[Rfam]
RNA: tRNA
RNA sequence: AGCAGCAUGGCGCAGUAGAAGCGCGCGGGGCCCAUAACCCCGAGGUCACUUGAUCGAAACAAGUUGCUGCUA
Numbered sequence: 001a002g003c004a005g006c007a008u009g010g011c012g013c014a015g016u017a018g019a020a021g022c023g024c025g026c027g028g029g030g031c032c033c034a035u036a037a038c039c040c041c042g043a044g045g046u047c048a049c050u051u052g053a054u055c056g057a058a059a060c061a062a063g064u065u066g067c068u069g070c071u072a
Base pairs, nucleotide, nucleotide: 001071002070003069004068005067006066007065010024011023012022013021026042027041028040029039030038048064049063050062051061052060